Rfam assigns this 86-nucleotide RNA from Gemmiger sp. An194 to the family "Fluoride riboswitch aptamer (crcB RNA motif)".
It scores 34 bits against the family's covariance model.
Nucleotides: 086
Stems, first nucleotide, its partner, number of pairs: 010026004016077005056067004
Number, partner (000 for none) and nucleotide at each position: 001000a002000a003000g004000c005000a006000u007000a008000c009000g010026g011025g012024g013023a014000a015000u016077g017076a018075g019074g020073c021000a022000c023013u024012c025011c026010c027000c028000c029000g030000g031000c032000g033000g034000g035000c036000c037000g038000g039000a040000u041000g042000c043000g044000c045000c046000c047000g048000c049000c050000c051000a052000a053000a054000c055000c056067g057066c058065c059064u060000g061000u062000u063000c064059g065058g066057g067056c068000u069000g070000a071000u072000g073020g074019c075018u076017u077016c078000u079000g080000u081000g082000a083000u084000c085000u086000g